[Rfam]
RNA sequence: UGUGUGUGAUGGGCUGGCAGUGUAUUGUUAGCUGGUUGAUAUGUGGAUGACAUCAGCUAACAUGCACCUGCUAUCCCAUUGCAUGUA
Numbered sequence: 001u002g003u004g005u006g007u008g009a010u011g012g013g014c015u016g017g018c019a020g021u022g023u024a025u026u027g028u029u030a031g032c033u034g035g036u037u038g039a040u041a042u043g044u045g046g047a048u049g050a051c052a053u054c055a056g057c058u059a060a061c062a063u064g065c066a067c068c069u070g071c072u073a074u075c076c077c078a079u080u081g082c083a084u085g086u087a
Stems, first nucleotide, its partner, number of pairs: 001087013015073006022065003027061010040049003
Dot-bracket structure: (((((((((((((.((((((.(((..((((((((((...(((....)))..)))))))))).)))..)))))).)))))))))))))